[Rfam]
This 84-nucleotide sequence from Liquorilactobacillus cacaonum belongs to the Rfam family "SAM-III riboswitch aptamer (SMK box)". Its family is annotated with methionine adenosyltransferase activity and regulation of translational initiation in the Gene Ontology. Pairs were carried over by alignment from the consensus structure, which is taken from published work.

RNA sequence: AUAUGUUACAGCGUAUUCCCGAAAGGAUUCAUUAAUGUGAAGCUGCCUUGUAACCAAAAAUAUUGUAAUGGGGGAAUUAUUGUG
Numbered sequence: 001a002u003a004u005g006u007u008a009c010a011g012c013g014u015a016u017u018c019c020c021g022a023a024a025g026g027a028u029u030c031a032u033u034a035a036u037g038u039g040a041a042g043c044u045g046c047c048u049u050g051u052a053a054c055c056a057a058a059a060a061u062a063u064u065g066u067a068a069u070g071g072g073g074g075a076a077u078u079a080u081u082g083u084g
Base pairs, nucleotide, nucleotide: 016076017075018074019073020072023049024048025047026046028041029040030039031038032037054071055070